[Rfam]
RNA sequence: GAGAAUAUCAAUUUUUUAGCUUAUAUAUGGUCGUGAUAAGGAUGACCGUUUCUACCCGGCACCGUAAAGGCUGGACUAUAAGUGGAAAAGCGUGUUCG
Numbered sequence: 001g002a003g004a005a006u007a008u009c010a011a012u013u014u015u016u017u018a019g020c021u022u023a024u025a026u027a028u029g030g031u032c033g034u035g036a037u038a039a040g041g042a043u044g045a046c047c048g049u050u051u052c053u054a055c056c057c058g059g060c061a062c063c064g065u066a067a068a069g070g071c072u073g074g075a076c077u078a079u080a081a082g083u084g085g086a087a088a089a090g091c092g093u094g095u096u097c098g
Stems, first nucleotide, its partner, number of pairs: 019083007029047006056074005
Dot-bracket structure: ..................(((((((...((((((.......))))))........(((((.........)))))..)))))))...............
The record is a 98-nucleotide RNA from Candidatus Enterococcus clewellii, which matches "Purine riboswitch aptamer" in Rfam. From the family's description: Riboswitches are metabolite binding domains within certain messenger RNAs that serve as precision sensors for their corresponding targets. Allosteric rearrangement of mRNA structure is mediated by ligand binding, and this results in modulation of gene expression. A class of riboswitches that selectively recognises guanine and becomes saturated at concentrations as low as 5 nM. In Bacillus subtilis, this mRNA motif is located on at least five separate transcriptional units that together encode 17 genes that are mostly involved in purine transport and purine nucleotide biosynthesis. The base pairs follow the family's consensus structure, which is taken from published work. Rfam links the family to the GO term purine nucleobase biosynthetic process. A search with the family's covariance model found it, with a score of 63 bits.